The family of this 109-nucleotide RNA from Lederbergia lenta is "SAM riboswitch aptamer (S box leader)". The source organism's lineage runs through Bacteria, Bacillati, Bacilli, Caryophanales and Lederbergia. The family is grouped with related families in Rfam's "SAM clan".
RNA sequence: UUCUUAUCAAGAGAGGUGUAGGGACUGACCCGUUUGAAACCUCAGCAACCAGCAAUUAUUUGCACGGUGCUAAUUUCAGAAGGAUACAUUUGUAUUCUAAAGAUGAGUU
Dot-bracket structure: ..((((((....(((((...(((.[[[[))).......)))))((((.((.((((....))))..))))))...(]]]].((((((......))))))..)))))))..

The family's consensus secondary structure is taken from published work.